[Rfam]
RNA sequence: CCGCCGUCGGGAGACUCCGACGCGCGGCCCACGCACCGGCCGCCGGGACCGCGCCGAGCCACUGGCGAGACCGACCCGCGACGU
Numbered sequence: 001c002c003g004c005c006g007u008c009g010g011g012a013g014a015c016u017c018c019g020a021c022g023c024g025c026g027g028c029c030c031a032c033g034c035a036c037c038g039g040c041c042g043c044c045g046g047g048a049c050c051g052c053g054c055c056g057a058g059c060c061a062c063u064g065g066c067g068a069g070a071c072c073g074a075c076c077c078g079c080g081a082c083g084u
Base pairs, nucleotide, nucleotide: 002083003082005080006079008078009077010076011075013060015058022054023053024052025051026050027049029047038072039071041067042066043065044064
RNA: c-di-GMP-II-GAG riboswitch aptamer